RNA: Small nucleolar RNA snoR104
Organism: Zizania palustris
RNA sequence: AAGGAGGAUGUCAGAGUUAGCAUUCCUGCCUGAUACCAUCUUCCUAGAUUUAAUCUGCCUUUUUUGCUUGCUGAACUAUUAGAUGGUUUUGCUAGCCUUAGUAGGCAGGACAUCACU
Numbered sequence: 001a002a003g004g005a006g007g008a009u010g011u012c013a014g015a016g017u018u019a020g021c022a023u024u025c026c027u028g029c030c031u032g033a034u035a036c037c038a039u040c041u042u043c044c045u046a047g048a049u050u051u052a053a054u055c056u057g058c059c060u061u062u063u064u065u066g067c068u069u070g071c072u073g074a075a076c077u078a079u080u081a082g083a084u085g086g087u088u089u090u091g092c093u094a095g096c097c098u099u100a101g102u103a104g105g106c107a108g109g110a111c112a113u114c115a116c117u
Base pairs, nucleotide, nucleotide: 001031003029005027006025007024008023009022010021011020056110058108066096067095068094070092071091073089075087076086077085